RNA sequence: UAACCUAUAUAGUGAUGUAUAGCUGAAUUAUCAGAAGUCAGUAGACGGCAUAGUACUUUCUCUAAUCGCGAUAGCAAAGGGAAGGAC
Dot-bracket structure: ((..(((((((....))))))).))...........(((....)))(.(......(((...................)))....).)
A member of the RNA family "Group II catalytic intron D1-D4-1" from Clostridium paraputrificum, 87 nucleotides long. Rfam describes the family as follows. Group II introns are found in rRNA, tRNA and mRNA of organelles in fungi, plants and protists, and also in mRNA in bacteria. NCBI's taxonomy places the organism under Bacteria, Bacillati, Clostridia, Eubacteriales, Clostridium.